The record is an 80-nucleotide sequence from Caulobacter sp. K31, which matches "ZMP/ZTP riboswitch aptamer (pfl RNA motif)" in Rfam. Rfam links the family to the GO terms regulation of purine nucleotide biosynthetic process and one-carbon metabolic process. The organism belongs to Caulobacter, within Bacteria.
RNA sequence: GCCCGUUCGCGUGACUGGCGCUAGUGAUGGGGAACCAUCGGGGAGCGCGAACCACAUCGCCGCGCGCCUGGGCUCCUCGA
Numbered sequence: 001g002c003c004c005g006u007u008c009g010c011g012u013g014a015c016u017g018g019c020g021c022u023a024g025u026g027a028u029g030g031g032g033a034a035c036c037a038u039c040g041g042g043g044a045g046c047g048c049g050a051a052c053c054a055c056a057u058c059g060c061c062g063c064g065c066g067c068c069u070g071g072g073c074u075c076c077u078c079g080a
Stems, first nucleotide, its partner, number of pairs: 005052008015042002017068005027038004059073003